[Rfam]
RNA sequence: AGCGCCUUUAAUUUAGUCCUGUGAGGCUAAGAAGGUAUACGAAGCACUGCGCAUUUGAUCUCAGUGUAUCUCAGCGCAAACUUAAACUAUACAAACUUCGUAUGACUCCUUGUCGAACUGGACAAGGAGUCUUUUUUU
Numbered sequence: 001a002g003c004g005c006c007u008u009u010a011a012u013u014u015a016g017u018c019c020u021g022u023g024a025g026g027c028u029a030a031g032a033a034g035g036u037a038u039a040c041g042a043a044g045c046a047c048u049g050c051g052c053a054u055u056u057g058a059u060c061u062c063a064g065u066g067u068a069u070c071u072c073a074g075c076g077c078a079a080a081c082u083u084a085a086a087c088u089a090u091a092c093a094a095a096c097u098u099c100g101u102a103u104g105a106c107u108c109c110u111u112g113u114c115g116a117a118c119u120g121g122a123c124a125a126g127g128a129g130u131c132u133u134u135u136u137u138u
Stems, first nucleotide, its partner, number of pairs: 004036006013030006041070002044067006051060001102133001104131011
Notes:
This 138-nucleotide RNA from Agrilactobacillus composti belongs to the Rfam family "PyrR binding site". Lineage of the source: Bacteria > Bacillati > Bacillota > Lactobacillaceae > Agrilactobacillus composti. This family represents the PyrR binding site and terminator structure. This RNA structure is found upstream of a variety of genes involved in pyrimidine biosynthesis and transport. It is annotated as a cis-regulatory element.